[Rfam]
RNA sequence: CGCGCUGGCGCGACGGGCCAUCAAAGACAAAGAACCCUGGUAAAGAACCCACCCAACCCAACCAAACCCCACACCGUCACCCAGAUAGGUGAAUCCGCCCAACUCGGCUGGCGCGGACGCGGAUUGGCGAGGCAGGCUCGGUCUUGGCAACCCCCAGACAUGCGACGGCCCCCGGCCGGGAGUGGCUUCCCGAUCGAGGGCCUGACCACCGAGGAAGAAAAGGCCUUCCUG
Numbered sequence: 001c002g003c004g005c006u007g008g009c010g011c012g013a014c015g016g017g018c019c020a021u022c023a024a025a026g027a028c029a030a031a032g033a034a035c036c037c038u039g040g041u042a043a044a045g046a047a048c049c050c051a052c053c054c055a056a057c058c059c060a061a062c063c064a065a066a067c068c069c070c071a072c073a074c075c076g077u078c079a080c081c082c083a084g085a086u087a088g089g090u091g092a093a094u095c096c097g098c099c100c101a102a103c104u105c106g107g108c109u110g111g112c113g114c115g116g117a118c119g120c121g122g123a124u125u126g127g128c129g130a131g132g133c134a135g136g137c138u139c140g141g142u143c144u145u146g147g148c149a150a151c152c153c154c155c156a157g158a159c160a161u162g163c164g165a166c167g168g169c170c171c172c173c174g175g176c177c178g179g180g181a182g183u184g185g186c187u188u189c190c191c192g193a194u195c196g197a198g199g200g201c202c203u204g205a206c207c208a209c210c211g212a213g214g215a216a217g218a219a220a221a222g223g224c225c226u227u228c229c230u231g
Stems, first nucleotide, its partner, number of pairs: 007210002010207001077092005107137002167202005173196002178191004213229005
Overview:
Shown here is a 231-nucleotide RNA from Streptomyces sparsogenes, a member of the family "Streptomyces sRNA 4677". Pairs were carried over by alignment from the consensus structure. The family's RNA type in Rfam is small RNA. From the family's description: Located in the intergenic region between anti-sigma factor SCO4677 gene and a putative regulatory protein gene SCO4676. scr4677 expression requires the SCO4677 activity and scr4677 sRNA itself seem to affect the levels of the SCO4676-associated transcripts. The family has 12 seed sequences and 563 matches in Rfam 15.1.